[Rfam]
RNA sequence: AGGUGAUGUCUCCUUACCUAUAUCAACGGAGGCACUCGGUUAUGCUGUGGGUGAAAUACCUUAGACGCGUGUCGUCGAUAGUGUGAUGUGAGGUGGGGUUAGAUGCCCC
Dot-bracket structure: [[[[..(((((((..]]]]........)))))))((((((((((((..(((((...)))))..((((.....))))...)))))))).))))..(((((.....)))))

Notes
This 109-nucleotide RNA sequence from Bacillus sp. Y1 belongs to the Rfam family "epsC RNA". The base pairs follow the family's consensus structure, which is taken from published work. Taxonomically the source falls in Bacillus (Bacteria, Bacillati, Bacilli, Caryophanales). It scores 112 bits against the family's covariance model.